[Rfam]
RNA sequence: CGCACCCGCGGGCCGCCCGCCGAGGGGACCGGGGAACCACAGUGGGGCUCACGCUCCCGUGGGGCGCAGGGCCUUUUCUCAACACCCCGCCCGACAGCUAACCCGGUUGGCGAAGAGAAGAUAU
Number, nucleotide and partner (000 for none) at each position: 001c109002g000003c000004a000005c027006c026007c025008g000009c000010g000011g000012g000013c000014c000015g000016c000017c000018c000019g000020c000021c000022g000023a000024g000025g007026g006027g005028a107029c106030c105031g104032g103033g102034g000035a000036a000037c000038c044039a043040c000041a000042g000043u039044g038045g092046g091047g090048c000049u000050c000051a000052c066053g065054c064055u063056c000057c000058c000059g000060u000061g000062g000063g055064g054065c053066g052067c000068a000069g088070g087071g086072c000073c000074u000075u000076u000077u000078c000079u000080c000081a000082a000083c000084a000085c000086c071087c070088c069089g000090c047091c046092c045093g000094a000095c000096a000097g000098c000099u000100a000101a000102c033103c032104c031105g030106g029107u028108u000109g001110g000111c000112g000113a000114a000115g000116a000117g000118a000119a000120g000121a000122u000123a000124u000

The record is a 124-nucleotide sequence from Corynebacterium ureicelerivorans, which matches "c-di-AMP riboswitch aptamer (ydaO/yuaA leader)" in Rfam. The base pairs follow the family's consensus structure.